[Rfam]
RNA: Bacterial RNase P class A
Organism: Aquaspirillum sp. LM1
RNA sequence: AAAGUCAGCCGGACAGUCGCUGCCUGUUUACAGGGAGAGGAAAGUCCGGGCUCCAUAGGGCAGGAUGCCGGUUAACGACCGGGCGUCGCGAGGCGACGGAAAGUGGAACAGAGAGCAGAACCGCCGAUGGCCGGGCAACCGGCACAGGCAAGGGUGAAAAGGUGGCCCUUCGGGGUGGAUGGCUGGCAACAGGCAUUCCGGUAAGAGCGCACCGCGGACGUGGCAACACGGACGGCAGGCUAAACCCCAUCCGGAGCAAGAUCAAAUAGGGGAACGUUCAUGUGGCCCGCAUGGUUCCCGGGUAGAUUGCUGGAGCCGUCAGGUAACUGCCGGCCUAGAGGAAUGACUGUCACCGGUGGCAACACCGGUACAGAACCCGGCUUACAGGCUGACUUUGCGC
Numbered sequence: 001a002a003a004g005u006c007a008g009c010c011g012g013a014c015a016g017u018c019g020c021u022g023c024c025u026g027u028u029u030a031c032a033g034g035g036a037g038a039g040g041a042a043a044g045u046c047c048g049g050g051c052u053c054c055a056u057a058g059g060g061c062a063g064g065a066u067g068c069c070g071g072u073u074a075a076c077g078a079c080c081g082g083g084c085g086u087c088g089c090g091a092g093g094c095g096a097c098g099g100a101a102a103g104u105g106g107a108a109c110a111g112a113g114a115g116c117a118g119a120a121c122c123g124c125c126g127a128u129g130g131c132c133g134g135g136c137a138a139c140c141g142g143c144a145c146a147g148g149c150a151a152g153g154g155u156g157a158a159a160a161g162g163u164g165g166c167c168c169u170u171c172g173g174g175g176u177g178g179a180u181g182g183c184u185g186g187c188a189a190c191a192g193g194c195a196u197u198c199c200g201g202u203a204a205g206a207g208c209g210c211a212c213c214g215c216g217g218a219c220g221u222g223g224c225a226a227c228a229c230g231g232a233c234g235g236c237a238g239g240c241u242a243a244a245c246c247c248c249a250u251c252c253g254g255a256g257c258a259a260g261a262u263c264a265a266a267u268a269g270g271g272g273a274a275c276g277u278u279c280a281u282g283u284g285g286c287c288c289g290c291a292u293g294g295u296u297c298c299c300g301g302g303u304a305g306a307u308u309g310c311u312g313g314a315g316c317c318g319u320c321a322g323g324u325a326a327c328u329g330c331c332g333g334c335c336u337a338g339a340g341g342a343a344u345g346a347c348u349g350u351c352a353c354c355g356g357u358g359g360c361a362a363c364a365c366c367g368g369u370a371c372a373g374a375a376c377c378c379g380g381c382u383u384a385c386a387g388g389c390u391g392a393c394u395u396u397g398c399g400c
Stems, first nucleotide, its partner, number of pairs: 001396010011385001012351007020037002023034004042383003046380005051256004058288004063252005068082005083097001084095004098247002103245002105241002121153002123149003128144002131141001161213004214236001215234002219230004260308004270299006279293005315334004320329003